[Rfam]
RNA sequence: UUGCACAGCGAACACCCAGGGACGCCAGCGUGGCUCUCCCUGGUCUCCUGUGUCUGUGCUAAAGCAACUCUGGUCUUUUCCUCUGCAUUUGGAGAGUUAUGUCUCUCUUACAUGUAUUCAGUUGAUCAGAACAAUG
Numbered sequence: 001u002u003g004c005a006c007a008g009c010g011a012a013c014a015c016c017c018a019g020g021g022a023c024g025c026c027a028g029c030g031u032g033g034c035u036c037u038c039c040c041u042g043g044u045c046u047c048c049u050g051u052g053u054c055u056g057u058g059c060u061a062a063a064g065c066a067a068c069u070c071u072g073g074u075c076u077u078u079u080c081c082u083c084u085g086c087a088u089u090u091g092g093a094g095a096g097u098u099a100u101g102u103c104u105c106u107c108u109u110a111c112a113u114g115u116a117u118u119c120a121g122u123u124g125a126u127c128a129g130a131a132c133a134a135u136g
Stems, first nucleotide, its partner, number of pairs: 003059006010053001013050002016043005022037001024034003061076001063074001065072002083121003086114003091108006
Background:
The record is a 136-nucleotide sequence from Menidia menidia, which matches "Small nucleolar RNA SNORA22" in Rfam. Rfam's curators write: ACA22 is a member of the H/ACA class of snoRNA that guide the sites of modification of uridines to pseudouridines. It is annotated as an H/ACA-box small nucleolar RNA.